[Rfam]
RNA: MIR2619 microRNA precursor family
Nucleotides: 174
Base pairs, nucleotide, nucleotide: 001174002173004171006169007168008167012163013162014161015160016159017158018157019156020155021154022153024151025150027148029146031144032143033142034141035140036139037138038137039136040135041134042133043132045130076103077102079100080099081098082097083096084095085094
Number, partner (000 for none) and nucleotide at each position: 001174a002173a003000a004171u005000c006169g007168c008167c009000c010000u011000c012163u013162a014161a015160g016159u017158u018157u019156u020155g021154c022153a023000a024151c025150u026000u027148u028000a029146g030000c031144a032143g033142u034141u035140u036139u037138g038137g039136c040135c041134c042133c043132c044000c045130a046000a047000a048000g049000c050000a051000a052000a053000a054000a055000a056000a057000a058000a059000a060000a061000a062000a063000a064000c065000a066000a067000g068000a069000a070000a071000a072000u073000a074000a075000c076103a077102c078000g079100u080099g081098g082097c083096a084095c085094c086000u087000c088000a089000c090000u091000u092000a093000g094085g095084g096083u097082g098081c099080c100079a101000u102077g103076u104000u105000a106000g107000c108000g109000u110000a111000g112000a113000c114000c115000g116000a117000g118000u119000c120000a121000a122000a123000a124000u125000u126000g127000g128000u129000c130045u131000u132043g133042g134041g135040g136039g137038u138037c139036a140035a141034a142033a143032c144031u145000a146029c147000c148027a149000c150025a151024g152000g153022u154021g155020c156019a157018a158017a159016a160015c161014u162013u163012a164000g165000g166000g167008g168007g169006c170000a171004g172000u173002u174001u